[Rfam]
RNA sequence: GGUUAAUGUAUUAUUUUACCUAAGACAGUAGGAGUUAGUAAUAACUUAAAAUUUGAUCCUACCGAGGCUAAAAUUGACUUGAACGUGAAGAUUUUAGAUCUUUCAAGCACUUUUUGCCGUGGGUAGAAAGUGUUUUUUUUAUUGGAUA
Numbered sequence: 001g002g003u004u005a006a007u008g009u010a011u012u013a014u015u016u017u018a019c020c021u022a023a024g025a026c027a028g029u030a031g032g033a034g035u036u037a038g039u040a041a042u043a044a045c046u047u048a049a050a051a052u053u054u055g056a057u058c059c060u061a062c063c064g065a066g067g068c069u070a071a072a073a074u075u076g077a078c079u080u081g082a083a084c085g086u087g088a089a090g091a092u093u094u095u096a097g098a099u100c101u102u103u104c105a106a107g108c109a110c111u112u113u114u115u116g117c118c119g120u121g122g123g124u125a126g127a128a129a130g131u132g133u134u135u136u137u138u139u140u141a142u143u144g145g146a147u148a
Stems, first nucleotide, its partner, number of pairs: 028062006034045003107133010
The record is a 148-nucleotide RNA from Staphylococcus saprophyticus, which matches "Ribosomal protein L10 leader" in Rfam.
It is one of the family's seed sequences.
Its family is annotated with regulation of gene expression in the Gene Ontology.
The family's RNA type in Rfam is cis-regulatory leader.
The literature on the family includes a 1994 paper in Prog Nucleic Acid Res Mol Biol by Zengel and Lindahl, "Diverse mechanisms for regulating ribosomal protein synthesis in Escherichia coli".